[Rfam]
Notes
This 64-nucleotide RNA belongs to the Rfam family "pemK RNA". The base pairs follow the family's consensus structure, which is taken from published work. By type it is a cis-regulatory element.
RNA sequence: AUAAUGAUACUUCCGUAACUCGCGGCCCGGUCACAAUGAAGACGGGGAGAUAAAAUUUCUAUGG
Numbered sequence: 001a002u003a004a005u006g007a008u009a010c011u012u013c014c015g016u017a018a019c020u021c022g023c024g025g026c027c028c029g030g031u032c033a034c035a036a037u038g039a040a041g042a043c044g045g046g047g048a049g050a051u052a053a054a055a056u057u058u059c060u061a062u063g064g
Stems, first nucleotide, its partner, number of pairs: 012061001013025004026047003030043003048060003